[Rfam]
Shown here is a 112-nucleotide RNA sequence from Anaerocolumna cellulosilytica, a member of the family "Fusobacteriales-1 RNA".

RNA sequence: AGUUGCAUUUUACUUUGUCAAUGUAUAUAAUAUAAGUACAAAGAUGUUUCACAAUGUACAGUUAAACAUUGUAAUGAUACAAAGAUGCUUCACAAUGUGCAGGAAACAUUGU
Number, nucleotide and partner (000 for none) at each position: 001a000002g000003u000004u000005g000006c000007a031008u025009u000010u000011u000012a000013c000014u000015u000016u000017g000018u000019c000020a000021a000022u000023g000024u000025a008026u000027a000028u000029a000030a000031u007032a000033u000034a000035a000036g000037u000038a000039c000040a000041a000042a000043g000044a000045u060046g059047u058048u000049u000050c000051a072052c071053a070054a069055u068056g067057u066058a047059c046060a045061g000062u000063u000064a000065a000066a057067c056068a055069u054070u053071g052072u051073a000074a000075u000076g000077a000078u000079a000080c000081a000082a000083a000084g000085a000086u101087g100088c099089u000090u000091c000092a112093c111094a110095a109096u108097g107098u106099g088100c087101a086102g000103g000104a000105a000106a098107c097108a096109u095110u094111g093112u092
Lineage of the source: Bacteria > Bacillota > Clostridia > Lachnospirales > Anaerocolumna. It is annotated as a cis-regulatory element. A search with the family's covariance model found it, with a score of 66 bits.